This 74-nucleotide RNA sequence from Dasyornis broadbenti belongs to the Rfam family "mir-1759 microRNA precursor family". The organism belongs to Dasyornis, within Eukaryota. Its family is annotated with RISC complex and miRNA-mediated post-transcriptional gene silencing in the Gene Ontology. Pairs were carried over by alignment from the consensus structure, which was predicted with RNAalifold.
RNA sequence: GCUGUUGCAGGGUAGGAGAAGAGAGGUGUUACCUUAUAAGCUGCCACCUCUCCCAUUCUCUCCCCUGCAGGAGC
Numbered sequence: 001g002c003u004g005u006u007g008c009a010g011g012g013u014a015g016g017a018g019a020a021g022a023g024a025g026g027u028g029u030u031a032c033c034u035u036a037u038a039a040g041c042u043g044c045c046a047c048c049u050c051u052c053c054c055a056u057u058c059u060c061u062c063c064c065c066u067g068c069a070g071g072a073g074c
Stems, first nucleotide, its partner, number of pairs: 001074003005070006011063002014059004018054001021052008030043002033040002